Rfam assigns this 91-nucleotide sequence from Kosakonia sacchari to the family "Plasmid-encoded Shigella sRNA A". It is one of the family's seed sequences. A reference for the family is Peng et al. (2011), "An integrated approach for finding overlooked genes in Shigella", PLoS One. Taxonomically the source falls in Kosakonia sacchari (Bacteria, Pseudomonadota, Gammaproteobacteria, Enterobacterales). Rfam classes the family as a small RNA.

[Rfam]
RNA sequence: UGGCUGCGAAAAGAGUUUUAAUUUUUUUCAGAGACCGUAGAGAAUUAACGGUUUCAGGCGACAGGCACAACGGAGAGAGAUUAUGUUUGAA
Numbered sequence: 001u002g003g004c005u006g007c008g009a010a011a012a013g014a015g016u017u018u019u020a021a022u023u024u025u026u027u028u029c030a031g032a033g034a035c036c037g038u039a040g041a042g043a044a045u046u047a048a049c050g051g052u053u054u055c056a057g058g059c060g061a062c063a064g065g066c067a068c069a070a071c072g073g074a075g076a077g078a079g080a081u082u083a084u085g086u087u088u089g090a091a
Base pairs, nucleotide, nucleotide: 001067002066004064005063006062007060008059013055014054015053017051018050019047020046021045022044023043071089072088073087074086076084